[Rfam]
RNA sequence: UCAUUAAGCGAUGACGUGACAGACUGAGUGUUACGUCAUCAUGCUUUGUCACCGACAUGCAUUGAAGGGGAUGACAUGGCAAUGAGGUGUUCGUGACUAGGUGUGAUGACGUGACACUUUGUCUGCCACGUCAUCACUUAACGGAA
Dot-bracket structure: ((.(((((.(((((((((.(((((.(((((((((((((((((((((.(((((.(((((((((........))).)...........))))).))))).))))))))))))))))))))).))))).))))))))).))))).))..